[Rfam]
RNA: Metazoan signal recognition particle RNA
RNA sequence: GCCGGGCGCGGUGGCGCGUGCCUGUAAUCCCAGCUCCCUGGGAGGCAGAGGCCGGAGGAUCCCUUGAGCCCGGGAGUUCGAGGCUGCCGCGGGCUGUGCCGAGCAGGCGUCCCGGCCAAGGUCAGCAUCAAUAUGGUGGUCCCUGGGGAACCGGGGCCCCCAGGUUGCCUAGGGAGGGGCGAACCGGCCCAGGUCGGAGACGGAGCAGGCCAAAGCUCCCCUGCUGAUCGGUGGCGGGACCGCGCCUGCGAGCAGCCCCGCAGCCCAGCCUGGGCGAGACAGAGAGACCCGGCCUCCU
Numbered sequence: 001g002c003c004g005g006g007c008g009c010g011g012u013g014g015c016g017c018g019u020g021c022c023u024g025u026a027a028u029c030c031c032a033g034c035u036c037c038c039u040g041g042g043a044g045g046c047a048g049a050g051g052c053c054g055g056a057g058g059a060u061c062c063c064u065u066g067a068g069c070c071c072g073g074g075a076g077u078u079c080g081a082g083g084c085u086g087c088c089g090c091g092g093g094c095u096g097u098g099c100c101g102a103g104c105a106g107g108c109g110u111c112c113c114g115g116c117c118a119a120g121g122u123c124a125g126c127a128u129c130a131a132u133a134u135g136g137u138g139g140u141c142c143c144u145g146g147g148g149a150a151c152c153g154g155g156g157c158c159c160c161c162a163g164g165u166u167g168c169c170u171a172g173g174g175a176g177g178g179g180c181g182a183a184c185c186g187g188c189c190c191a192g193g194u195c196g197g198a199g200a201c202g203g204a205g206c207a208g209g210c211c212a213a214a215g216c217u218c219c220c221c222u223g224c225u226g227a228u229c230g231g232u233g234g235c236g237g238g239a240c241c242g243c244g245c246c247u248g249c250g251a252g253c254a255g256c257c258c259c260g261c262a263g264c265c266c267a268g269c270c271u272g273g274g275c276g277a278g279a280c281a282g283a284g285a286g287a288c289c290c291g292g293c294c295u296c297c298u
Stems, first nucleotide, its partner, number of pairs: 001046003004023007028043003048296008060285002063282002068275007079268001082265005088260002091257001093256005099250001103249008111238002115235004120229008129167004134162003138158004143154004168174002176219005186211004194203003
Dot-bracket structure: ((((((((((......)))))))....(((..........)))))).((((((((....((.((...(((((((....(..(((((.((.(.(((((.(...((((((((((..((((.((((((((.((((.(((.((((.((((....)))))))).))).))))((...)).(((((.....((((....(((....)))....))))...)))))..))))))))..)))).))...))))))))).)))))).)))))))..)))))))).....)).))...))))))))..